About this RNA:
This 74-nucleotide sequence from Eptesicus fuscus belongs to the Rfam family "mir-9223 microRNA precursor family". Rfam 15.1 lists 14,641 matches to the family in 28 species. It is one of the family's seed sequences.
RNA sequence: GCAGUUCUCAGGUGAUGCACCCUGGAAUCAGGCUCCCUCCUCUCUGUUCUGGGUGCAUCACCCGAGAACCGCAG
Numbered sequence: 001g002c003a004g005u006u007c008u009c010a011g012g013u014g015a016u017g018c019a020c021c022c023u024g025g026a027a028u029c030a031g032g033c034u035c036c037c038u039c040c041u042c043u044c045u046g047u048u049c050u051g052g053g054u055g056c057a058u059c060a061c062c063c064g065a066g067a068a069c070c071g072c073a074g
Stems, first nucleotide, its partner, number of pairs: 001072002004069006011062006018055005024050004029046004